[Rfam]
RNA: Small nucleolar RNA snR33
Organism: Saccharomyces paradoxus
Nucleotides: 183
Base pairs, nucleotide, nucleotide: 012093013092014091015090016089026071027070028069029068030067031066032065033064034062035061036060037059038058039054040053041052042051043050044049117177118176119175120174121173122172131163132162133161134160135159136158137157138156139155
Number, partner (000 for none) and nucleotide at each position: 001000a002000a003000g004000c005000u006000u007000a008000a009000u010000g011000c012093c013092c014091u015090c016089u017000u018000u019000g020000c021000a022000c023000a024000a025000u026071g027070g028069u029068g030067u031066c032065a033064c034062u035061c036060u037059a038058a039054a040053a041052u042051u043050a044049u045000u046000u047000a048000u049044a050043u051042a052041g053040u054039u055000u056000a057000a058038u059037u060036g061035g062034a063000c064033g065032u066031g067030a068029u069028a070027u071026c072000a073000a074000g075000c076000a077000u078000u079000a080000u081000u082000u083000u084000c085000g086000u087000u088000u089016g090015g091014a092013g093012g094000a095000g096000c097000a098000g099000a100000g101000a102000u103000u104000g105000a106000a107000a108000g109000c110000u111000u112000a113000g114000c115000u116000u117177u118176u119175a120174c121173a122172c123000c124000g125000g126000u127000u128000u129000g130000a131163g132162u133161c134160g135159g136158u137157u138156c139155c140000u141000u142000c143000g144000u145000u146000u147000u148000c149000u150000u151000a152000g153000u154000c155139g156138g157137a158136a159135u160134u161133g162132a163131u164000a165000u166000a167000g168000a169000a170000g171000u172122g173121u174120g175119u176118g177117a178000a179000c180000a181000a182000u183000u